[Rfam]
RNA sequence: CCGGCACCGGUUCACCCGCUCCAUCGACAUGAUGCGGCGGGACCCGGCGGCC
Numbered sequence: 001c002c003g004g005c006a007c008c009g010g011u012u013c014a015c016c017c018g019c020u021c022c023a024u025c026g027a028c029a030u031g032a033u034g035c036g037g038c039g040g041g042a043c044c045c046g047g048c049g050g051c052c
Stems, first nucleotide, its partner, number of pairs: 003052003007047004015041006022034005
Description: This 52-nucleotide RNA sequence from Pseudonocardia sediminis belongs to the Rfam family "L31-Actinobacteria ribosomal protein leader". The source organism's lineage runs through Bacteria, Bacillati, Actinomycetota, Pseudonocardiales and Pseudonocardia.